[Rfam]
Rfam assigns this 232-nucleotide RNA sequence from Gossypium schwendimanii to the family "Early nodulin 40".
RNA sequence: AUGGGGUCUUCACAAAAAGCAUGGAAAGGGUUUAGGGCUAUGGAUUCCUCAAUUCACCUUCCUCCAAUGAAUUAAAAGCACUUUUCUCUUCUGCUUCACUCACAUGGCUGCAUGCAUGGAGGGGGAGGAGGAGGAUAGGUUCCCACAGAGUAGCUAGCUAGCAGAGGCUUUGGCUAAUGCAGUGGCAAACCGGCAAGUCACACAAAGGCAAUGGACUCUAUCUAUGAGUUCU
Numbered sequence: 001a002u003g004g005g006g007u008c009u010u011c012a013c014a015a016a017a018a019g020c021a022u023g024g025a026a027a028g029g030g031u032u033u034a035g036g037g038c039u040a041u042g043g044a045u046u047c048c049u050c051a052a053u054u055c056a057c058c059u060u061c062c063u064c065c066a067a068u069g070a071a072u073u074a075a076a077a078g079c080a081c082u083u084u085u086c087u088c089u090u091c092u093g094c095u096u097c098a099c100u101c102a103c104a105u106g107g108c109u110g111c112a113u114g115c116a117u118g119g120a121g122g123g124g125g126a127g128g129a130g131g132a133g134g135a136u137a138g139g140u141u142c143c144c145a146c147a148g149a150g151u152a153g154c155u156a157g158c159u160a161g162c163a164g165a166g167g168c169u170u171u172g173g174c175u176a177a178u179g180c181a182g183u184g185g186c187a188a189a190c191c192g193g194c195a196a197g198u199c200a201c202a203c204a205a206a207g208g209c210a211a212u213g214g215a216c217u218c219u220a221u222c223u224a225u226g227a228g229u230u231c232u
Base pairs, nucleotide, nucleotide: 028065029064030063082188083187085185097179098178214230215229216228217227218226
The family has 35 seed sequences and 341 matches in Rfam 15.1.